[Rfam]
Nucleotides: 067
Base pairs, nucleotide, nucleotide: 003063004062005061006060007059008058012054013053014052016051017050018049019048020047021046022045
Number, partner (000 for none) and nucleotide at each position: 001000c002000g003063g004062u005061a006060u007059u008058c009000u010000u011000u012054g013053g014052u015000u016051a017050a018049u019048a020047a021046u022045a023000a024000g025000g026000a027000u028000g029000g030000c031000a032000u033000c034000a035000c036000g037000a038000c039000u040000c041000a042000u043000u044000a045022u046021a047020u048019u049018a050017u051016u052014g053013c054012u055000c056000a057000a058008g059007a060006a061005u062004a063003c064000c065000c066000u067000u
Notes:
mir-234 microRNA precursor family: a 67-nucleotide RNA sequence from Caenorhabditis brenneri. The family's consensus secondary structure was predicted with RNAalifold. The literature on the family includes a 2003 paper in Genes Dev by Lim et al., "The microRNAs of Caenorhabditis elegans". The source organism's lineage runs through Eukaryota, Opisthokonta, Ecdysozoa, Rhabditidae and Caenorhabditis.